This 103-nucleotide RNA sequence from Aurantimonas marianensis belongs to the Rfam family "Guanidine-I riboswitch aptamer". It scores 90 bits against the family's covariance model.
RNA sequence: GUGCGGUGCGUCUAGGGUUCCGGCAUCGAGCGAUGCGACUGGUCCGAGAGACGCACUCCCCGUGAGUUGCGGGGAGACACGGCGGGCCAAAAUCCCGGGAGAA
Number, nucleotide and partner (000 for none) at each position: 001g000002u000003g000004c000005g000006g000007u055008g054009c053010g052011u051012c050013u000014a000015g045016g044017g000018u000019u000020c042021c041022g039023g036024c035025a034026u033027c032028g000029a000030g000031c000032g027033a026034u025035g024036c023037g000038a000039c022040u000041g021042g020043u000044c016045c015046g000047a000048g000049a000050g012051a011052c010053g009054c008055a007056c076057u075058c074059c073060c072061c071062g070063u069064g000065a000066g000067u000068u000069g063070c062071g061072g060073g059074g058075a057076g056077a000078c098079a000080c101081g000082g000083c000084g096085g095086g094087c000088c000089a000090a000091a000092a000093u000094c086095c085096c084097g000098g078099g000100a000101g080102a000103a000

About this RNA:
The source organism's lineage runs through Bacteria, Pseudomonadati, Pseudomonadota, Alphaproteobacteria and Aurantimonas.